[Rfam]
Nucleotides: 578
Stems, first nucleotide, its partner, number of pairs: 001573008010565002014560002022394004027390002029386005035188004042180007051154009061144008078136005085119003097110005158168004191204001192202003205227005230333002236288006242268002245263006269278002293319009321330001323328001344372005350367001352366004403444003407441001408438007418428002455530001456528004460522001461519005468493002472487005496508004536554004540549003
Number, partner (000 for none) and nucleotide at each position: 001573c002572c003571c004570c005569c006568c007567a008566c009000a010565c011564c012000g013000a014560g015559a016000g017000a018000a019000g020000a021000c022394c023393c024392c025391g026000u027390g028389g029386a030385g031384c032383u033382u034000a035188a036187c037186u038185g039000c040000a041000g042180c043179c044178u045177g046176g047175c048174g049000c050000u051154g052153u053152c054151g055150u056149u057148c058147g059146g060000u061144c062143g063142c064141c065140u066139g067138u068137g069000c070000g071000u072000a073000g074000a075000g076000u077000a078136g079135g080134u081133a082132g083000g084000a085119g086118g087117c088000g089000u090000c091000g092000a093000a094000g095000c096000c097110g098109u099108c100107c101106u102000u103000u104000c105000g106101g107100g108099g109098a110097c111000g112000g113000u114000g115000g116000a117087g118086c119085c120000g121000a122000a123000a124000g125000u126000g127000a128000a129000a130000c131000a132082c133081u134080a135079c136078c137068c138067a139066c140065g141064g142063g143062u144061g145000u146059u147058c148057g149056a150055g151054c152053g153052a154051c155000u156000u157000a158168c159167c160166u161165c162000g163000c164000a165161g166160a167159g168158g169000g170000a171000c172000a173000a174048c175047g176046u177045c178044a179043g180042g181000u182000g183000g184000g185038c186037a187036g188035u189000u190000c191204g192202g193201c194200u195000g196000g197000g198000g199000c200194g201193g202192c203000a204191c205227u206226c207225c208224c209223g210000c211000g212000a213000a214000a215000a216000g217000a218000u219000a220000a221000c222000a223209c224208g225207g226206g227205a228000g229000c230333c231332c232000a233000a234000a235000g236288g237287u238286c239285g240284g241283c242268u243267c244000a245263g246262g247261c248260g249259g250258u251000a252000c253000a254000g255000a256000a257000c258250g259249c260248c261247g262246c263245c264000g265000u266000g267243g268242a269278g270277u271000g272000c273000a274000a275000g276000g277270g278269c279000a280000a281000a282000a283241g284240c285239c286238g287237g288236c289000u290000u291000g292000a293319c294318g295317a296316g297315a298314c299313c300312c301311u302000u303000c304000a305000a306000a307000g308000u309000a310000c311301g312300g313299g314298g315297u316296c317295u318294c319293g320000g321330c322000g323328c324000g325000a326000a327000a328323g329000c330321g331000c332231g333230g334000c335000c336000u337000a338000g339000c340000g341000a342000a343000c344372g345371c346370u347369c348368a349000u350367g351000c352366c353365c354364c355363c356000a357000c358000a359000c360000g361000u362000g363355g364354g365353g366352g367350c368348u369347g370346g371345g372344c373000a374000u375000g376000u377000c378000a379000g380000a381000a382033a383032a384031g385030u386029u387000a388000c389028c390027c391025c392024g393023g394022g395000g396000a397000u398000a399000a400000c401000a402000a403444g404443g405442u406000c407441g408438u409437c410436g411435c412434g413433g414432g415000c416000g417000a418428g419427a420000g421000c422000u423000c424000c425000c426000a427419u428418c429000g430000a431000c432414c433413c434412c435411g436410c437409g438408g439000u440000u441407u442405g443404c444403u445000a446000u447000a448000u449000c450000g451000a452000u453000g454000u455530c456528g457527g458526c459525u460522c461519u462518u463517c464516c465515c466000a467000c468493c469492c470000u471000g472487g473486g474485g475484g476483u477000g478000c479000a480000g481000u482000a483476g484475c485474c486473c487472c488000c489000a490000a491000g492469g493468g494000u495000a496508g497507g498506g499505c500000u501000g502000c503000c504000c505499g506498c507497c508496c509000g510000u511000u512000a513000a514000u515465g516464g517463g518462g519461a520000a521000c522460g523000u524000g525459a526458g527457c528456u529000g530455g531000g532000u533000u534000u535000a536554g537553a538552c539551c540549g541548u542547c543000g544000c545000g546000a547542g548541a549540c550000a551539g552538g553537u554536c555000g556000g557000a558000c559015u560014c561000u562000a563000a564011g565010g566008g567007u568006g569005g570004g571003g572002g573001g574000u575000g576000c577000c578000u
Notes:
Rfam assigns this 578-nucleotide part of an RNA from Sulfodiicoccus acidiphilus to the family "Archaeal large subunit ribosomal RNA". Pairs were carried over by alignment from the consensus structure, which is taken from published work.